[Rfam]
RNA: SAM-I/IV (S-adenosyl methionine) riboswitch aptamer
RNA sequence: AAAGAACAUUAAGAGAAGUUUGGUGAAAACUAAGCUCAGCAACCUGGGAAAGGCACCCAAGGUGCUUCCAGUAUUUACUGGGAUGAGGCCCGAUAGAAUUGGGCAACAAAGUGUCUGAGUA
Numbered sequence: 001a002a003a004g005a006a007c008a009u010u011a012a013g014a015g016a017a018g019u020u021u022g023g024u025g026a027a028a029a030c031u032a033a034g035c036u037c038a039g040c041a042a043c044c045u046g047g048g049a050a051a052g053g054c055a056c057c058c059a060a061g062g063u064g065c066u067u068c069c070a071g072u073a074u075u076u077a078c079u080g081g082g083a084u085g086a087g088g089c090c091c092g093a094u095a096g097a098a099u100u101g102g103g104c105a106a107c108a109a110a111g112u113g114u115c116u117g118a119g120u121a
Stems, first nucleotide, its partner, number of pairs: 007085004015037001017036008038066003043062003046058003050116001052114001088104007